[Rfam]
RNA sequence: AUCAUGAUACUUCUGUAAUUCGCAGCCCGGCCACAAAGAAGGCGGGGUGGUCUAAAGCCAAUGG
Numbered sequence: 001a002u003c004a005u006g007a008u009a010c011u012u013c014u015g016u017a018a019u020u021c022g023c024a025g026c027c028c029g030g031c032c033a034c035a036a037a038g039a040a041g042g043c044g045g046g047g048u049g050g051u052c053u054a055a056a057g058c059c060a061a062u063g064g
Base pairs, nucleotide, nucleotide: 012061013025014024015023016022026047027046028045030043031042032041048060049059050058
A member of the RNA family "pemK RNA" from Faecalibacterium sp. An121, 64 nucleotides long. The base pairs follow the family's consensus structure, which is taken from published work. By type it is a cis-regulatory element. The match comes from Rfam's covariance-model search (59 bits).